RNA sequence: AGGUUUUUUCUUGGGGCAAUGACGCAGCUAGUGAGGUUCUAACCGAGGCGCGUCAAUUGCUGGUUGAAAACUAUUUCCAAACCCCCUCAUUGGCCUGGGCUUGCCUCUGGCCUUUGAGAAUUUCUGGAAGGGCUUCUAUGAG
Numbered sequence: 001a002g003g004u005u006u007u008u009u010c011u012u013g014g015g016g017c018a019a020u021g022a023c024g025c026a027g028c029u030a031g032u033g034a035g036g037u038u039c040u041a042a043c044c045g046a047g048g049c050g051c052g053u054c055a056a057u058u059g060c061u062g063g064u065u066g067a068a069a070a071c072u073a074u075u076u077c078c079a080a081a082c083c084c085c086c087u088c089a090u091u092g093g094c095c096u097g098g099g100c101u102u103g104c105c106u107c108u109g110g111c112c113u114u115u116g117a118g119a120a121u122u123u124c125u126g127g128a129a130g131g132g133c134u135u136c137u138a139u140g141a142g
Stems, first nucleotide, its partner, number of pairs: 021054005027049003035044003086118003092112004097107001098105002133142002
Annotation:
The record is a 142-nucleotide RNA sequence from Kalanchoe fedtschenkoi, which matches "U4 spliceosomal RNA" in Rfam. Rfam describes the family as follows. U4 small nuclear RNA (U4 snRNA) is a component of the major U2-dependent spliceosome. Its Rfam clan is "U4 clan". The family's RNA type in Rfam is spliceosomal small nuclear RNA.